Shown here is a 323-nucleotide RNA from Betacoronavirus pipistrelli, a member of the family "Betacoronavirus 5'UTR".

RNA sequence: GAUUUAAGAGAAUAGCCUAGCUAUCCCUCUCUCUCGUUCUCUUGCAGAACUUUGUUUUUAACGAACUUAAAUAAUAGCCCUGCUGGUUUGCGUGCUGCGAUACCUUUCUGCUGCGUCAUAGGCGCCGGACUGGAAAGCGCAUGUACACCACUGGGUAUAAUUAAAACUGAAUAAUAUUUUUCAGUUAGAGCAUCGUGUCUCAAGUGCUUCACGGUCACAAUAUACCGUUUCGUCGGGUGCGUGGCAAUUCGGUGCACAUCAUGUCUUUCGUGGCUGGUGUGGCUCCUCAAGGUGCGAGGGGCAAGUAUAGAGCAGAGCUCAAC
Numbered sequence: 001g002a003u004u005u006a007a008g009a010g011a012a013u014a015g016c017c018u019a020g021c022u023a024u025c026c027c028u029c030u031c032u033c034u035c036g037u038u039c040u041c042u043u044g045c046a047g048a049a050c051u052u053u054g055u056u057u058u059u060a061a062c063g064a065a066c067u068u069a070a071a072u073a074a075u076a077g078c079c080c081u082g083c084u085g086g087u088u089u090g091c092g093u094g095c096u097g098c099g100a101u102a103c104c105u106u107u108c109u110g111c112u113g114c115g116u117c118a119u120a121g122g123c124g125c126c127g128g129a130c131u132g133g134a135a136a137g138c139g140c141a142u143g144u145a146c147a148c149c150a151c152u153g154g155g156u157a158u159a160a161u162u163a164a165a166a167c168u169g170a171a172u173a174a175u176a177u178u179u180u181u182c183a184g185u186u187a188g189a190g191c192a193u194c195g196u197g198u199c200u201c202a203a204g205u206g207c208u209u210c211a212c213g214g215u216c217a218c219a220a221u222a223u224a225c226c227g228u229u230u231c232g233u234c235g236g237g238u239g240c241g242u243g244g245c246a247a248u249u250c251g252g253u254g255c256a257c258a259u260c261a262u263g264u265c266u267u268u269c270g271u272g273g274c275u276g277g278u279g280u281g282g283c284u285c286c287u288c289a290a291g292g293u294g295c296g297a298g299g300g301g302c303a304a305g306u307a308u309a310g311a312g313c314a315g316a317g318c319u320c321a322a323c
Stems, first nucleotide, its partner, number of pairs: 007030004012024005036050005089145005097138002103133002107129004195207002220238002225236003255281007263274003
Lineage of the source: Viruses > Riboviria > Orthornavirae > Coronaviridae > Betacoronavirus pipistrelli. Its Rfam clan is "Coronavirus 5' UTR". The family's RNA type in Rfam is cis-regulatory element. For this family Rfam cites "The 3' cis-acting genomic replication element of the severe acute respiratory syndrome coronavirus can function in the murine coronavirus genome" (Goebel et al., J Virol, 2004).